[Rfam]
RNA sequence: GUGGCGUGCCCCGGGAGCUCGGGCGAACCGGGCUGAGAGGGCGGCUCAGGAUUCCGCCGCCGACCGGUAUGACCUGAUCUGGGUAAUGCCAGCGAAGGGAGGGCCGCAGUCAUGUGA
Numbered sequence: 001g002u003g004g005c006g007u008g009c010c011c012c013g014g015g016a017g018c019u020c021g022g023g024c025g026a027a028c029c030g031g032g033c034u035g036a037g038a039g040g041g042c043g044g045c046u047c048a049g050g051a052u053u054c055c056g057c058c059g060c061c062g063a064c065c066g067g068u069a070u071g072a073c074c075u076g077a078u079c080u081g082g083g084u085a086a087u088g089c090c091a092g093c094g095a096a097g098g099g100a101g102g103g104c105c106g107c108a109g110u111c112a113u114g115u116g117a
Stems, first nucleotide, its partner, number of pairs: 006105001009102002011067004017033005040061005073098003079092004
Rfam assigns this 117-nucleotide sequence from bacterium HR27 to the family "TPP riboswitch aptamer (THI element)". It scores 62 bits against the family's covariance model.